[Rfam]
RNA: Infectious bronchitis virus D-RNA
Organism: Naja naja
Nucleotides: 042
Base pairs, nucleotide, nucleotide: 001042002041005039006038007037008036009035010034011033012032013031014030015029016028017027
Number, partner (000 for none) and nucleotide at each position: 001042g002041g003000u004000a005039g006038g007037u008036a009035g010034g011033u012032a013031g014030g015029u016028a017027g018000a019000u020000a021000g022000g023000u024000u025000a026000u027017c028016u029015a030014u031013c032012u033011a034010u035009c036008u037007a038006c039005c040000g041002u042001c